[Rfam]
RNA: Selenocysteine transfer RNA
RNA sequence: GUGUGCAUGAUCCUGCCUGGUGGUGGGUGCAGGCUUCAAACCUGUGGACGGUUAGCGCCGUAGUUGUUCGAUUCAACCUUGCGCAC
Numbered sequence: 001g002u003g004u005g006c007a008u009g010a011u012c013c014u015g016c017c018u019g020g021u022g023g024u025g026g027g028u029g030c031a032g033g034c035u036u037c038a039a040a041c042c043u044g045u046g047g048a049c050g051g052u053u054a055g056c057g058c059c060g061u062a063g064u065u066g067u068u069c070g071a072u073u074c075a076a077c078c079u080u081g082c083g084c085a086c
Base pairs, nucleotide, nucleotide: 001086002085003084004083005082006081007080009078012027013026014025015024016023017022028046029045030044031043032042033041048061049060050059051058052057063077064076065075066074